sok antitoxin (CssrC): a 206-nucleotide RNA sequence from Shimwellia blattae. Lineage of the source: Bacteria > Pseudomonadota > Gammaproteobacteria > Enterobacteriaceae > Shimwellia blattae. Its family is annotated with mRNA binding in the Gene Ontology. The family has 91 seed sequences and 305 matches in Rfam 15.1. Rfam describes the family as follows. Also identified in Shigella as CssrC. It scores 80 bits against the family's covariance model.
RNA sequence: CGGCGCUUAAGGCUGUCUGCCUUAUGCGGAGUCUCUGGCGUGGCUGUUGCAGUAAUGCGGUAAUAACGCAGUGCGGUACAGAAUGUGGUAAGGCAGAAAGAAUAAAGCCCCGUAGUUAAUUUUCAUUAAUCCACGAGGCCUACUCUAUGCCCAAGAACAUCAGAGUAGCCGCUUACCUGCCGCGAGGCAAGGAGAUACCGGCCAUG
Numbered sequence: 001c002g003g004c005g006c007u008u009a010a011g012g013c014u015g016u017c018u019g020c021c022u023u024a025u026g027c028g029g030a031g032u033c034u035c036u037g038g039c040g041u042g043g044c045u046g047u048u049g050c051a052g053u054a055a056u057g058c059g060g061u062a063a064u065a066a067c068g069c070a071g072u073g074c075g076g077u078a079c080a081g082a083a084u085g086u087g088g089u090a091a092g093g094c095a096g097a098a099a100g101a102a103u104a105a106a107g108c109c110c111c112g113u114a115g116u117u118a119a120u121u122u123u124c125a126u127u128a129a130u131c132c133a134c135g136a137g138g139c140c141u142a143c144u145c146u147a148u149g150c151c152c153a154a155g156a157a158c159a160u161c162a163g164a165g166u167a168g169c170c171g172c173u174u175a176c177c178u179g180c181c182g183c184g185a186g187g188c189a190a191g192g193a194g195a196u197a198c199c200g201g202c203c204a205u206g
Base pairs, nucleotide, nucleotide: 002110003109005108006107007106008105013100014099016097017096018095019094020093021092022091023090024089025088112134113133115130116129117128118127119126120125135172137170138169139168142166143165144164145163147160148159149158180194